[Rfam]
RNA: tRNA
Organism: Candidatus Xiphinematobacter sp. Idaho Grape
RNA sequence: GUGGCUGUAGCUCAAUGGUAGAGCUCCAGAUUGUGGUUCUGGCUGCUGCGGGUUCGAGUCCCGUCAGCCACC
Numbered sequence: 001g002u003g004g005c006u007g008u009a010g011c012u013c014a015a016u017g018g019u020a021g022a023g024c025u026c027c028a029g030a031u032u033g034u035g036g037u038u039c040u041g042g043c044u045g046c047u048g049c050g051g052g053u054u055c056g057a058g059u060c061c062c063g064u065c066a067g068c069c070a071c072c
Stems, first nucleotide, its partner, number of pairs: 001071007010024004026042005048064005